The family of this 65-nucleotide sequence from Lathyrus oleraceus is "MIR5291 microRNA precursor family". The family's consensus secondary structure was predicted with RNAalifold. A search with the family's covariance model found it, with a score of 60 bits. NCBI's taxonomy places the organism under Eukaryota, Pentapetalae, fabids, Fabeae, Lathyrus.
RNA sequence: GAUAGAUUUAAUCCAAUCCAUUAACUUAAUUUUUUAUGUAGUGGAUGGAUUGGAUGAAUUUUUUG
Numbered sequence: 001g002a003u004a005g006a007u008u009u010a011a012u013c014c015a016a017u018c019c020a021u022u023a024a025c026u027u028a029a030u031u032u033u034u035u036a037u038g039u040a041g042u043g044g045a046u047g048g049a050u051u052g053g054a055u056g057a058a059u060u061u062u063u064u065g
Stems, first nucleotide, its partner, number of pairs: 004061005011055012027038002
Dot-bracket structure: ...(((((..((((((((((((....((........)).....)))))))))))).)))))....